[Rfam]
RNA sequence: AUAUAAGGAGCAAUAAACCCUUUCUUGUUCUUUCAAAAGAGGGUUUAUUGCUCCUUUAU
Numbered sequence: 001a002u003a004u005a006a007g008g009a010g011c012a013a014u015a016a017a018c019c020c021u022u023u024c025u026u027g028u029u030c031u032u033u034c035a036a037a038a039g040a041g042g043g044u045u046u047a048u049u050g051c052u053c054c055u056u057u058a059u
Base pairs, nucleotide, nucleotide: 005056006055007054008053009052010051011050012049013048014047015046019042020041022039023038025036026035027034
The family of this 59-nucleotide sequence from Salvia rosmarinus is "Plastid-psbA-4 3UTR RNA". The family is grouped with related families in Rfam's "Plastid-psbA 3UTR RNA clan". By type it is a cis-regulatory element. On this family, see Richter et al., Plant Commun 2023: "Retrograde signaling in plants: A critical review focusing on the GUN pathway and beyond". Pairs were carried over by alignment from the consensus structure, which was predicted with LocARNA.